A member of the RNA family "Mammalian CPEB3 ribozyme" from Parnassius apollo, 76 nucleotides long. Pairs were carried over by alignment from the consensus structure, which is taken from published work. From the family's description: The mammalian CPEB3 ribozyme is a self cleaving RNA located in the second intron of the CPEB3 gene which belongs to a family of genes regulating messenger RNA polyadenylation. The organism belongs to Parnassius, within Eukaryota.
[Rfam]
RNA sequence: AAAUAUUUUUAGGGGGUCAUUGUAGAAGCGUGCUCGUCGUGACCCCUGCCAGCCCUUUCAGGGCUGCAAUUCUACA
Dot-bracket structure: ............[[[[[[..((((((((((.......)))]]]]]]...(((((((...)))))))...)))))))